LOOT RNA: a 127-nucleotide sequence.
RNA sequence: UACCUAACCCUCAGGAGAAACCCUGAGGUAUGGUAAUAAAUCCUAAGCAACAGAAACGGUCUCAUGACUGGUACUUGUUGCUUAGGUCAGCAUUCGAAAGGAUGUUGGGUGGCCCGCAAGGGUUGCC
Numbered sequence: 001u002a003c004c005u006a007a008c009c010c011u012c013a014g015g016a017g018a019a020a021c022c023c024u025g026a027g028g029u030a031u032g033g034u035a036a037u038a039a040a041u042c043c044u045a046a047g048c049a050a051c052a053g054a055a056a057c058g059g060u061c062u063c064a065u066g067a068c069u070g071g072u073a074c075u076u077g078u079u080g081c082u083u084a085g086g087u088c089a090g091c092a093u094u095c096g097a098a099a100g101g102a103u104g105u106u107g108g109g110u111g112g113c114c115c116g117c118a119a120g121g122g123u124u125g126c127c
Base pairs, nucleotide, nucleotide: 001035002034003033004032009028010027011026012025013024014023015022042086043085044084045083046082047081048080049079050078051077052076055072057070058069059068060067061066088107089106090105091104092103093102094101095100108127109126110125111124112123113122114121115120